[Rfam]
RNA: Archaeal large subunit ribosomal RNA, nucleotides 562 to 658
Organism: Candidatus Methanoperedens nitratireducens
RNA sequence: GAUACGGCGUGGAAGGAUCUGCAUAGCGAAGGAAUGUGUCGCAAGGCACUUGUACGGGCUAUGUUGCCAGCGUCGUAUCAUACGUUUUGAAGAACGG
Numbered sequence: 001g002a003u004a005c006g007g008c009g010u011g012g013a014a015g016g017a018u019c020u021g022c023a024u025a026g027c028g029a030a031g032g033a034a035u036g037u038g039u040c041g042c043a044a045g046g047c048a049c050u051u052g053u054a055c056g057g058g059c060u061a062u063g064u065u066g067c068c069a070g071c072g073u074c075g076u077a078u079c080a081u082a083c084g085u086u087u088u089g090a091a092g093a094a095c096g097g
Stems, first nucleotide, its partner, number of pairs: 001079010015068002021064007031055001036049005083096003